[Rfam]
RNA: DUF3800-VII RNA
RNA sequence: AAAGAACGUCGCCGGACAAUGCGAGGGUUUUUUAACCAGCAUAUUUGUUAUGUGGUAGUCGCACCGGGGGUUCUUUCAUUU
Numbered sequence: 001a002a003a004g005a006a007c008g009u010c011g012c013c014g015g016a017c018a019a020u021g022c023g024a025g026g027g028u029u030u031u032u033u034a035a036c037c038a039g040c041a042u043a044u045u046u047g048u049u050a051u052g053u054g055g056u057a058g059u060c061g062c063a064c065c066g067g068g069g070g071u072u073c074u075u076u077c078a079u080u081u
Base pairs, nucleotide, nucleotide: 001076002075003074004073005072006071007070010068012067013066014065015064020063021062022061023060024059026037027036028035029034040052041051042050043049